[Rfam]
RNA sequence: GAUCUGGUAGCUCAGUUGGUAGAGCAUCUCCCUUUUAAGGAGAGGGUCCUGGGUUCGAGCCCCAGCCAGGUCA
Numbered sequence: 001g002a003u004c005u006g007g008u009a010g011c012u013c014a015g016u017u018g019g020u021a022g023a024g025c026a027u028c029u030c031c032c033u034u035u036u037a038a039g040g041a042g043a044g045g046g047u048c049c050u051g052g053g054u055u056c057g058a059g060c061c062c063c064a065g066c067c068a069g070g071u072c073a
Base pairs, nucleotide, nucleotide: 001072002071003070004069005068006067007066010025011024012023013022027043028042029041030040031039049065050064051063052062053061
This 73-nucleotide RNA from Putridiphycobacter roseus belongs to the Rfam family "tRNA". NCBI's taxonomy places the organism under Bacteria, Flavobacteriia, Flavobacteriales, Crocinitomicaceae, Putridiphycobacter. A search with the family's covariance model found it, with a score of 70 bits. Pairs were carried over by alignment from the consensus structure, which is taken from published work.